[Rfam]
RNA sequence: AUUCUAUAAGAGGAAACAAGAGAAAUCUUACUUCCUCGGCAGCAAGCGAAGGUGCCUUUGGUACCCGUGGCGUCGUCCCCCCGGCGACGCCACGAUCUUUUUUU
Numbered sequence: 001a002u003u004c005u006a007u008a009a010g011a012g013g014a015a016a017c018a019a020g021a022g023a024a025a026u027c028u029u030a031c032u033u034c035c036u037c038g039g040c041a042g043c044a045a046g047c048g049a050a051g052g053u054g055c056c057u058u059u060g061g062u063a064c065c066c067g068u069g070g071c072g073u074c075g076u077c078c079c080c081c082c083g084g085c086g087a088c089g090c091c092a093c094g095a096u097c098u099u100u101u102u103u104u
Stems, first nucleotide, its partner, number of pairs: 012035004018029004039047002051065006066094012
RNA: Translational regulator of tfoXVC